[Rfam]
RNA sequence: AUUUUGUUUCGGCAAACUACUCGAAAGGGUAGGACGCAAAGCUAAAGGGGCUAAAUCUAUUUUGAUAGACAUGCCAGCCAGCUGCCCUU
Numbered sequence: 001a002u003u004u005u006g007u008u009u010c011g012g013c014a015a016a017c018u019a020c021u022c023g024a025a026a027g028g029g030u031a032g033g034a035c036g037c038a039a040a041g042c043u044a045a046a047g048g049g050g051c052u053a054a055a056u057c058u059a060u061u062u063u064g065a066u067a068g069a070c071a072u073g074c075c076a077g078c079c080a081g082c083u084g085c086c087c088u089u
Stems, first nucleotide, its partner, number of pairs: 012037002017032006040083004047079002049075003056069004